[Rfam]
RNA sequence: UUUGUCCACUCUCCCUAAAAGGCUUCCAGCUCAUAAUGUCUGGCAUUGCUAUCCGGAAGCCUUUGAGGAAGAGUGAGCAACAG
Number, nucleotide and partner (000 for none) at each position: 001u000002u000003u000004g000005u000006c000007c075008a074009c073010u072011c071012u070013c000014c068015c067016u000017a000018a064019a063020a062021g061022g060023c059024u058025u057026c056027c000028a000029g000030c000031u000032c000033a000034u000035a000036a000037u000038g000039u000040c000041u000042g000043g000044c000045a000046u000047u000048g000049c000050u000051a000052u000053c000054c000055g000056g026057a025058a024059g023060c022061c021062u020063u019064u018065g000066a000067g015068g014069a000070a012071g011072a010073g009074u008075g007076a000077g000078c000079a000080a000081c000082a000083g000